The record is a 54-nucleotide RNA from Sodalis glossinidius, which matches "L31-Gammaproteobacteria ribosomal protein leader" in Rfam. For this family Rfam cites "Discovery of 20 novel ribosomal leader candidates in bacteria and archaea" (Eckert and Weinberg, BMC Microbiol, 2020).

RNA sequence: CGCGUGGUGUCUGGCUAAAGUAGACUGGAUAGCGACGCGGCCUUAUGAAGAGGU
Number, nucleotide and partner (000 for none) at each position: 001c039002g038003c037004g036005u035006g000007g033008u032009g000010u000011c028012u027013g026014g025015c023016u022017a021018a000019a000020g000021u017022a016023g015024a000025c014026u013027g012028g011029a000030u000031a000032g008033c007034g000035a005036c004037g003038c002039g001040g000041c000042c000043u000044u000045a000046u000047g000048a000049a000050g000051a000052g000053g000054u000
It is annotated as a cis-regulatory leader. It is one of the family's seed sequences. Its Rfam clan is "Ribosomal Protein L31 Leader clan".